[Rfam]
RNA sequence: AGUUGCAAGUUUGAGGCCAUAACAGAAGUGCUCACAGCACAGCCCUCUUAGAAUACAACCAGUCUGCAAAUUCUGCU
Numbered sequence: 001a002g003u004u005g006c007a008a009g010u011u012u013g014a015g016g017c018c019a020u021a022a023c024a025g026a027a028g029u030g031c032u033c034a035c036a037g038c039a040c041a042g043c044c045c046u047c048u049u050a051g052a053a054u055a056c057a058a059c060c061a062g063u064c065u066g067c068a069a070a071u072u073c074u075g076c077u
Base pairs, nucleotide, nucleotide: 013045015044016043017042021077023075024074025073026072027071028040029039030038049066050065051064052063054061
The record is a 77-nucleotide RNA sequence from Crocodylus porosus, which matches "Mammalian CPEB3 ribozyme" in Rfam. Rfam's curators write: The mammalian CPEB3 ribozyme is a self cleaving RNA located in the second intron of the CPEB3 gene which belongs to a family of genes regulating messenger RNA polyadenylation. Rfam links the family to the GO term RNA nuclease activity.